[Rfam]
RNA: Bacterial large signal recognition particle RNA
Nucleotides: 266
Stems, first nucleotide, its partner, number of pairs: 001266006009058003012030004017025003035055005064259007073250004080243010093230002097227002100224003105220002107217003115213001117211007124201006130192002133190004138183006149174004157166003
Number, partner (000 for none) and nucleotide at each position: 001266c002265c003264g004263u005262g006261c007000u008000a009058g010057a011056u012030g013029g014028g015027g016000a017025g018024c019023u020000g021000g022000c023019g024018g025017u026000g027015c028014c029013c030012u031000g032000u033000a034000a035055c036054u037053c038052g039051c040000a041000a042000u043000c044000c045000g046000c047000c048000u049000u050000a051039g052038c053037g054036a055035g056011g057010u058009u059000g060000a061000a062000u063000u064259c065258c066257u067256u068255u069254u070253a071000g072000c073250g074249g075248u076247a077000u078000g079000a080243u081242u082241c083240a084239u085238g086237u087236g088235a089234g090000g091000c092000u093230u094229g095000c096000c097227u098226u099000a100224u101223g102222c103000a104000a105220a106219u107217g108216g109215u110000g111000u112000u113000g114000a115213c116000u117211a118210u119209u120208g121207g122206a123205g124201u125200c126199u127198g128197c129196g130192c131191a132000a133190c134189a135188g136187a137000a138183g139182u140181c141180u142179a143178u144000g145000a146000a147000a148000c149174u150173g151172g152171u153000c154000a155000g156000g157166u158165c159164c160000g161000g162000a163000a164159g165158g166157g167000a168000g169000c170000a171152g172151c173150c174149a175000u176000a177000a178143g179142u180141a181140g182139a183138u184000g185000a186000c187136u188135c189134u190133g191131u192130g193000u194000g195000c196129c197128g198127c199126a200125g201124g202000u203000c204000g205123c206122u207121c208120u209119a210118a211117u212000u213115g214000a215109g216108c217107u218000a219106g220105u221000u222102g223101c224100a225000c226098a227097a228000g229094u230093a231000a232000c233000g234089c235088u236087c237086a238085u239084g240083u241082g242081a243080a244000u245000c246000u247076u248075a249074u250073c251000u252000a253070u254069a255068a256067a257066a258065g259064g260000u261006g262005c263004a264003c265002g266001g